[Rfam]
RNA sequence: UGGCGCCCAACGUGGCGUUGGAUACGAGGGAAUUUCGUGAGGAAGACGACGCGGUUUGCCGGCCCGGAUUAAAAGAGAAACGAAAGUAAACUUUCUUCGGCCGCCGCGGGAGCCUGCCGCGUAGGACCUGAAAGUAAGUGGUGCGCUCGGAUAUGGGGCAGGAAUUAAGCCAGCACGAACGUUAUGUGGAACAAUUAAAACAGGCUUUAAAGACACGGGGAGUAAAGGUUAAAUAUGCUGAUCUCUUAAAGUUUUUUGAUUUUGUAAAGGAUACUUGUCCUU
Numbered sequence: 001u002g003g004c005g006c007c008c009a010a011c012g013u014g015g016c017g018u019u020g021g022a023u024a025c026g027a028g029g030g031a032a033u034u035u036c037g038u039g040a041g042g043a044a045g046a047c048g049a050c051g052c053g054g055u056u057u058g059c060c061g062g063c064c065c066g067g068a069u070u071a072a073a074a075g076a077g078a079a080a081c082g083a084a085a086g087u088a089a090a091c092u093u094u095c096u097u098c099g100g101c102c103g104c105c106g107c108g109g110g111a112g113c114c115u116g117c118c119g120c121g122u123a124g125g126a127c128c129u130g131a132a133a134g135u136a137a138g139u140g141g142u143g144c145g146c147u148c149g150g151a152u153a154u155g156g157g158g159c160a161g162g163a164a165u166u167a168a169g170c171c172a173g174c175a176c177g178a179a180c181g182u183u184a185u186g187u188g189g190a191a192c193a194a195u196u197a198a199a200a201c202a203g204g205c206u207u208u209a210a211a212g213a214c215a216c217g218g219g220g221a222g223u224a225a226a227g228g229u230u231a232a233a234u235a236u237g238c239u240g241a242u243c244u245c246u247u248a249a250a251g252u253u254u255u256u257u258g259a260u261u262u263u264g265u266a267a268a269g270g271a272u273a274c275u276u277g278u279c280c281u282u
Stems, first nucleotide, its partner, number of pairs: 006030003012025003035049004090135005100127001101125002105121005142160003146157004166209003169205003216258008226244006267282006
The record is a 282-nucleotide sequence, which matches "Mason-Pfizer monkey virus packaging signal" in Rfam. Pairs were carried over by alignment from the consensus structure, which was predicted with PFOLD. Gene Ontology term of the family: viral genome packaging. Rfam classes the family as a cis-regulatory element. For this family Rfam cites "Mutational analysis of the predicted secondary RNA structure of the Mason-Pfizer monkey virus packaging signal" (Mustafa et al., Virus Res, 2004). It is one of the family's seed sequences.